[Rfam]
RNA sequence: CCCUGUAUCGAAAGUGACUAUGGCAUGACUGUUGCCAUAGUUAUUGAUAGUACAGGAAUAGUGAUCUUGAAAGCUUUUCCCGUGUUUGUUGGAAUACUGGUUCCUGUCAAACCCUGUAUCUUUCAAACA
Numbered sequence: 001c002c003c004u005g006u007a008u009c010g011a012a013a014g015u016g017a018c019u020a021u022g023g024c025a026u027g028a029c030u031g032u033u034g035c036c037a038u039a040g041u042u043a044u045u046g047a048u049a050g051u052a053c054a055g056g057a058a059u060a061g062u063g064a065u066c067u068u069g070a071a072a073g074c075u076u077u078u079c080c081c082g083u084g085u086u087u088g089u090u091g092g093a094a095u096a097c098u099g100g101u102u103c104c105u106g107u108c109a110a111a112c113c114c115u116g117u118a119u120c121u122u123u124c125a126a127a128c129a
Stems, first nucleotide, its partner, number of pairs: 002056007013045008022036004067126007084112005089106001091104003
Annotation: The record is a 129-nucleotide RNA sequence from Oncorhynchus kisutch, which matches "Small nucleolar RNA SNORA71" in Rfam. The members of this family belong to the H/ACA class of snoRNAs which bind a number of proteins (including dyskerin, Gar1p and Nop10p) to form snoRNP complexes. This class of snoRNAs are thought to guide the sites of modification of uridines to pseudouridines by forming direct base pairing interactions with substrate RNAs. This family includes U71 (SNORA71), ACA39 (SNORA39) and ACA60 (SNORA60). U71 and ACA60 are predicted to guide the pseudouridylation of U406 and U1004 in 18S rRNA respectively. NCBI's taxonomy places the organism under Eukaryota, Metazoa, Euteleostomi, Protacanthopterygii, Oncorhynchus.